A member of the RNA family "Iron response element II" from Taxus chinensis, 31 nucleotides long. The family has 30 seed sequences and 5,197 matches in Rfam 15.1. The literature on the family includes a 1989 paper in Proc Natl Acad Sci U S A by Koeller et al., "A cytosolic protein binds to structural elements within the iron regulatory region of the transferrin receptor mRNA". A search with the family's covariance model found it, with a score of 32 bits. Rfam links the family to the GO term response to iron ion. IRE, TFRC, SLC40A1, SDHB, SLC11A2, CDC42BPA, ACO2, ALAS2_H.SAPIENS, CDC14A, EPAS1, ALAS2, qoxD, Hao1, NDUFS1, transferrin, Aconitate. Lineage of the source: Eukaryota > Embryophyta > Acrogymnospermae > Cupressales > Taxus. Rfam classes the family as a cis-regulatory element.
RNA sequence: UAGACAUCUUGAGCAGUGUUUUAAAUGUUUU
Numbered sequence: 001u002a003g004a005c006a007u008c009u010u011g012a013g014c015a016g017u018g019u020u021u022u023a024a025a026u027g028u029u030u031u
Base pairs, nucleotide, nucleotide: 002030003029004028005027006026007025009024010023011022012021013020014018